[Rfam]
RNA sequence: GGAGUCUGAGGGUAAGAAUGGAAUAGUACGAGAGGAACUUCCAUUCGGCGCCUCUAGUGUAUCGGUUGUCCGACAGGGCAUCGCCGAGCAGCCACGCGCCAAGGGAUAAAAGCUGAAAGCAUCUAAGCUUGAAACCCGGCCUAAAAAGAGACUCCGUUGAGGACAUGGGUAAAAGACCCGCUUGAUAGGCCUGGGAUGUACGCACGAAGGCAACGACGUGUUCAGUCCGCAGGUACUAACGUCCAAACCC
Numbered sequence: 001g002g003a004g005u006c007u008g009a010g011g012g013u014a015a016g017a018a019u020g021g022a023a024u025a026g027u028a029c030g031a032g033a034g035g036a037a038c039u040u041c042c043a044u045u046c047g048g049c050g051c052c053u054c055u056a057g058u059g060u061a062u063c064g065g066u067u068g069u070c071c072g073a074c075a076g077g078g079c080a081u082c083g084c085c086g087a088g089c090a091g092c093c094a095c096g097c098g099c100c101a102a103g104g105g106a107u108a109a110a111a112g113c114u115g116a117a118a119g120c121a122u123c124u125a126a127g128c129u130u131g132a133a134a135c136c137c138g139g140c141c142u143a144a145a146a147a148g149a150g151a152c153u154c155c156g157u158u159g160a161g162g163a164c165a166u167g168g169g170u171a172a173a174a175g176a177c178c179c180g181c182u183u184g185a186u187a188g189g190c191c192u193g194g195g196a197u198g199u200a201c202g203c204a205c206g207a208a209g210g211c212a213a214c215g216a217c218g219u220g221u222u223c224a225g226u227c228c229g230c231a232g233g234u235a236c237u238a239a240c241g242u243c244c245a246a247a248c249c250c
Stems, first nucleotide, its partner, number of pairs: 001155007010142004016046008047100005055094001057092001062087005067080005103137003110130005161244004166180004186238003189234005194228003202221005209214001
RNA: Archaeal large subunit ribosomal RNA, nucleotides 2662 to 2911
Organism: Methanolinea tarda